RNA sequence: UAUAAGCUGCGUUGUUCGUAUAGCAUAAUAAAGUUUUAACCUUUAAGCUGUAAUAGGGAGUUUUAUAUCGAAACCGGAAUGGCGGGCCUUUAUCACGGAUAAAGGAUAUACAGGAACGUUUCUGCAAACACCCACUUUGAGGAGUGGUGGUUUAAAACUUUCUUAGUUGGCUACGGCAAGUGCGGCUUACAU
Numbered sequence: 001u002a003u004a005a006g007c008u009g010c011g012u013u014g015u016u017c018g019u020a021u022a023g024c025a026u027a028a029u030a031a032a033g034u035u036u037u038a039a040c041c042u043u044u045a046a047g048c049u050g051u052a053a054u055a056g057g058g059a060g061u062u063u064u065a066u067a068u069c070g071a072a073a074c075c076g077g078a079a080u081g082g083c084g085g086g087c088c089u090u091u092a093u094c095a096c097g098g099a100u101a102a103a104g105g106a107u108a109u110a111c112a113g114g115a116a117c118g119u120u121u122c123u124g125c126a127a128a129c130a131c132c133c134a135c136u137u138u139g140a141g142g143a144g145u146g147g148u149g150g151u152u153u154a155a156a157a158c159u160u161u162c163u164u165a166g167u168u169g170g171c172u173a174c175g176g177c178a179a180g181u182g183c184g185g186c187u188u189a190c191a192u
Base pairs, nucleotide, nucleotide: 003189004188005187006186007185008184009183010182011181012179013178014177015176017175018174019173032159033158034157035156037154038153039152040150041149056133057132058131060129061128062127063126067123070122071121072120073119074118081111087105088104089103090102091101092100093099